[Rfam]
RNA sequence: ACGGCCGCAUAUCUCCGAGUCCGGAAUCCCUACAGCCCAGCCGAGCGGGCCACGGGGUCCGGACCGAUAGGGCGGGGACGGGAAACCUCCUCGCCUCCCGGUGGAAAGGAGACAGACUUAUGCU
Numbered sequence: 001a002c003g004g005c006c007g008c009a010u011a012u013c014u015c016c017g018a019g020u021c022c023g024g025a026a027u028c029c030c031u032a033c034a035g036c037c038c039a040g041c042c043g044a045g046c047g048g049g050c051c052a053c054g055g056g057g058u059c060c061g062g063a064c065c066g067a068u069a070g071g072g073c074g075g076g077g078a079c080g081g082g083a084a085a086c087c088u089c090c091u092c093g094c095c096u097c098c099c100g101g102u103g104g105a106a107a108g109g110a111g112a113c114a115g116a117c118u119u120a121u122g123c124u
Stems, first nucleotide, its partner, number of pairs: 003121001012112005019064006026058005035050003070096009080087002097104002